[Rfam]
RNA: tRNA
Organism: Leptolyngbyaceae cyanobacterium M33_DOE_097
RNA sequence: GGGUCUUUAGCUCAGGGGAUAGAGCAACCGCCUUCUAAGCGGUCGGUCGCAGGUUCGAAUCCUGCAAGACCCG
Dot-bracket structure: (((((((..((((........)))).(((((.......))))).....(((((.......)))))))))))).
Numbered sequence: 001g002g003g004u005c006u007u008u009a010g011c012u013c014a015g016g017g018g019a020u021a022g023a024g025c026a027a028c029c030g031c032c033u034u035c036u037a038a039g040c041g042g043u044c045g046g047u048c049g050c051a052g053g054u055u056c057g058a059a060u061c062c063u064g065c066a067a068g069a070c071c072c073g
Stems, first nucleotide, its partner, number of pairs: 001072007010025004027043005049065005